[Rfam]
This 34-nucleotide RNA sequence from Neptunitalea chrysea belongs to the Rfam family "S16-Flavobacteria ribosomal protein leader". Rfam classes the family as a cis-regulatory leader. NCBI's taxonomy places the organism under Bacteria, Bacteroidota, Flavobacteriia, Flavobacteriales, Neptunitalea. The family's consensus secondary structure is taken from published work. The match comes from Rfam's covariance-model search (41 bits). For this family Rfam cites "Discovery of 20 novel ribosomal leader candidates in bacteria and archaea" (Eckert and Weinberg, BMC Microbiol, 2020).
RNA sequence: AUUAAUAAUAGGGUCGAGAACCCCACUAAUUAAU
Numbered sequence: 001a002u003u004a005a006u007a008a009u010a011g012g013g014u015c016g017a018g019a020a021c022c023c024c025a026c027u028a029a030u031u032a033a034u
Stems, first nucleotide, its partner, number of pairs: 001034006011023004